Glycine riboswitch aptamer: a 100-nucleotide RNA sequence. The match comes from Rfam's covariance-model search (53 bits). Rfam describes the family as follows. This family represents the bacterial glycine riboswitch. The pairing is the family consensus, mapped onto this sequence.

[Rfam]
RNA sequence: UGGAUGGCAUCUGGAGAGCGGCGAAAUUCGCCCACCGAAGGGGCGGCCUCGCAGCAAUGCGAGGUCACAAACUCUCAGGUACAAGGACAGAUGGGGUGUG
Numbered sequence: 001u002g003g004a005u006g007g008c009a010u011c012u013g014g015a016g017a018g019c020g021g022c023g024a025a026a027u028u029c030g031c032c033c034a035c036c037g038a039a040g041g042g043g044c045g046g047c048c049u050c051g052c053a054g055c056a057a058u059g060c061g062a063g064g065u066c067a068c069a070a071a072c073u074c075u076c077a078g079g080u081a082c083a084a085g086g087a088c089a090g091a092u093g094g095g096g097u098g099u100g
Base pairs, nucleotide, nucleotide: 008093009092010091011090012089013088020032021031022030023029034080035079036078037076038075041074042073043072